[Rfam]
RNA sequence: GCGGAGUAAGCCGAAAAUCCGAUAAAAGAGUAGGCU
Numbered sequence: 001g002c003g004g005a006g007u008a009a010g011c012c013g014a015a016a017a018u019c020c021g022a023u024a025a026a027a028g029a030g031u032a033g034g035c036u
Stems, first nucleotide, its partner, number of pairs: 002021004010035003
The family of this 36-nucleotide sequence is "DUF805b RNA".